[Rfam]
RNA sequence: UAUUCGAUCAACUCGUUCUGCUGGUUGUUAUGCUGAAACAGAAAGAAGCAUCACAACCUCCUAGAAAGAGUAGAUCGAUUC
Numbered sequence: 001u002a003u004u005c006g007a008u009c010a011a012c013u014c015g016u017u018c019u020g021c022u023g024g025u026u027g028u029u030a031u032g033c034u035g036a037a038a039c040a041g042a043a044a045g046a047a048g049c050a051u052c053a054c055a056a057c058c059u060c061c062u063a064g065a066a067a068g069a070g071u072a073g074a075u076c077g078a079u080u081c
Base pairs, nucleotide, nucleotide: 008073010071012070013069014068016066017065018064019063020062023058024057026055027054028053030051031050032049
Record summary:
This 81-nucleotide sequence from Caenorhabditis remanei belongs to the Rfam family "mir-67 microRNA precursor family". The family has 33 seed sequences and 196 matches in Rfam 15.1. Rfam links the family to the GO terms RISC complex and miRNA-mediated post-transcriptional gene silencing. A reference for the family is Cao et al. (2008), "Identification of conserved microRNAs in Bombyx mori (silkworm) and regulation of fibroin L chain production by microRNAs in heterologous system", Insect Biochem Mol Biol. The sequence is in the family's curated seed alignment.